[Rfam]
RNA sequence: GUGUACCGGGCGCCCCGCUCCUCCUCCCAAGGGGACGCCUGCGAGAACGGCGACACUCCUCCUCCCGGUCGCUGUUCGGUUCUAUCAGGAAAAGCCUGCCGCACCUCCUCCCGCGGCGGGCUUUUUCG
Numbered sequence: 001g002u003g004u005a006c007c008g009g010g011c012g013c014c015c016c017g018c019u020c021c022u023c024c025u026c027c028c029a030a031g032g033g034g035a036c037g038c039c040u041g042c043g044a045g046a047a048c049g050g051c052g053a054c055a056c057u058c059c060u061c062c063u064c065c066c067g068g069u070c071g072c073u074g075u076u077c078g079g080u081u082c083u084a085u086c087a088g089g090a091a092a093a094g095c096c097u098g099c100c101g102c103a104c105c106u107c108c109u110c111c112c113g114c115g116g117c118g119g120g121c122u123u124u125u126u127c128g
Stems, first nucleotide, its partner, number of pairs: 007041006014034003045077010092123011
RNA: Alphaproteobacterial ar14